[Rfam]
RNA sequence: UGCCAGUGAUGUUCACAAAUUUGUCCGUACCAUCUGAGAUUAAAUUCUGCUGAUGUAUUCAUUCAAAUUCUAUUUUCUGAGGCAU
Numbered sequence: 001u002g003c004c005a006g007u008g009a010u011g012u013u014c015a016c017a018a019a020u021u022u023g024u025c026c027g028u029a030c031c032a033u034c035u036g037a038g039a040u041u042a043a044a045u046u047c048u049g050c051u052g053a054u055g056u057a058u059u060c061a062u063u064c065a066a067a068u069u070c071u072a073u074u075u076u077c078u079g080a081g082g083c084a085u
Stems, first nucleotide, its partner, number of pairs: 001084004